RNA sequence: CCUGCCCAUAGAGAUAUUGCAGGUUUGGCUGCUGUGUCACAUGUGCGUCAGUAGGUGGCAGAGGGGAGAGAGGCUAUGUCUAUGCUCAGUGUUCAGAUCUAGGAACUUCUGAAUGUUUCUUAGCCUAACACU
Dot-bracket structure: .((((((.((..(((...(((..(.((((......)))).)..))))))..)).).)))))......(..((((((.....(((.((((.((((........))))..)))).)))....))))))..)...